About this RNA: The family of this 83-nucleotide sequence from Caldichromatium japonicum is "SAH (S-adenosyl-L-homocysteine) riboswitch aptamer". A reference for the family is Wang et al. (2008), "Riboswitches that sense S-adenosylhomocysteine and activate genes involved in coenzyme recycling", Mol Cell. The family's consensus secondary structure is taken from published work.

RNA sequence: CCCGCCGAGGAGCGCUGCAACCCGCUGCUGCGGGCCAGGCUCGGCGCUGUGGGAUGUGUUUCACCAAACGGCGCUCACUCGAA
Numbered sequence: 001c002c003c004g005c006c007g008a009g010g011a012g013c014g015c016u017g018c019a020a021c022c023c024g025c026u027g028c029u030g031c032g033g034g035c036c037a038g039g040c041u042c043g044g045c046g047c048u049g050u051g052g053g054a055u056g057u058g059u060u061u062c063a064c065c066a067a068a069c070g071g072c073g074c075u076c077a078c079u080c081g082a083a
Base pairs, nucleotide, nucleotide: 003046004045005044006043007042008041021034022033023032024031025030